[Rfam]
Nucleotides: 132
Base pairs, nucleotide, nucleotide: 003056004055005054006053007052017044018043019042020041021040022039023038024037025036084113086111087110089108090107091106092105
Number, partner (000 for none) and nucleotide at each position: 001000g002000a003056g004055c005054a006053g007052a008000a009000u010000u011000c012000a013000g014000a015000c016000u017044a018043c019042a020041a021040u022039g023038u024037a025036g026000c027000u028000g029000u030000u031000u032000a033000g034000c035000a036025c037024u038023g039022u040021g041020u042019u043018g044017u045000c046000a047000u048000u049000c050000c051000c052007u053006c054005u055004g056003c057000u058000c059000a060000a061000a062000a063000u064000a065000a066000a067000g068000u069000u070000g071000u072000u073000u074000c075000u076000u077000u078000a079000c080000u081000a082000u083000a084113c085000c086111u087110g088000u089108c090107u091106g092105c093000u094000a095000u096000a097000u098000u099000c100000c101000u102000g103000c104000a105092g106091c107090a108089g109000c110087c111086a112000u113084g114000a115000a116000c117000a118000u119000u120000u121000g122000g123000u124000c125000c126000c127000a128000u129000a130000c131000a132000u

This 132-nucleotide sequence from Carlito syrichta belongs to the Rfam family "Small nucleolar RNA SNORA63". A reference for the family is Mishra and Eliceiri (1997), "Three small nucleolar RNAs that are involved in ribosomal RNA precursor processing", Proc Natl Acad Sci U S A. About the family: E3 belongs to the H/ACA class of snoRNAs and is involved in the processing of eukaryotic pre-rRNA and has regions of complementarity to 18S rRNA. E3 is encoded in introns in the gene for protein synthesis initiation factor 4AII. NCBI's taxonomy places the organism under Eukaryota, Eumetazoa, Euteleostomi, Tarsiidae, Carlito.